[Rfam]
RNA sequence: AUGGAGACAUGGCAUAAGGCCCAAAGGGGGACUUUGAAACCUGACCAUCAACUUGAACUGAUAAUUGCAUCUCAUUUU
Numbered sequence: 001a002u003g004g005a006g007a008c009a010u011g012g013c014a015u016a017a018g019g020c021c022c023a024a025a026g027g028g029g030g031a032c033u034u035u036g037a038a039a040c041c042u043g044a045c046c047a048u049c050a051a052c053u054u055g056a057a058c059u060g061a062u063a064a065u066u067g068c069a070u071c072u073c074a075u076u077u078u
Base pairs, nucleotide, nucleotide: 004073005072006071007070011021012020013019026068028066029065